[Rfam]
RNA sequence: UAGGUUUGUCUUAAGUCAAACUUUCUCAACUUUGACCAAAUUUAUAGAGAAAAGUAUCAAUGUUUAUGGCAUCAAAUAGGUAUAUUAUAAAAAUACAUCUCAUGAUAAAUCUAAUGGCACUUAUUUCAUACCAUAAAUAUAUGUAGUUUUUUCUAUAAUCUUGGUCAAACUUAAAAAAGUUUGACUUAGGACAAUCCUAA
Numbered sequence: 001u002a003g004g005u006u007u008g009u010c011u012u013a014a015g016u017c018a019a020a021c022u023u024u025c026u027c028a029a030c031u032u033u034g035a036c037c038a039a040a041u042u043u044a045u046a047g048a049g050a051a052a053a054g055u056a057u058c059a060a061u062g063u064u065u066a067u068g069g070c071a072u073c074a075a076a077u078a079g080g081u082a083u084a085u086u087a088u089a090a091a092a093a094u095a096c097a098u099c100u101c102a103u104g105a106u107a108a109a110u111c112u113a114a115u116g117g118c119a120c121u122u123a124u125u126u127c128a129u130a131c132c133a134u135a136a137a138u139a140u141a142u143g144u145a146g147u148u149u150u151u152u153c154u155a156u157a158a159u160c161u162u163g164g165u166c167a168a169a170c171u172u173a174a175a176a177a178a179g180u181u182u183g184a185c186u187u188a189g190g191a192c193a194a195u196c197c198u199a200a
Base pairs, nucleotide, nucleotide: 006194007193008192009191011189012188013187014186015185016184017183018182019181020180021179022178023177024176026174031169032168033167034166035165045155046154047153048152049151050150051149052148055145056144057143060140061139062138063137064136065135066134067133068132072128074126075125076124077123078122079121080120081119
RNA: MIR1435 microRNA precursor family
Organism: Setaria italica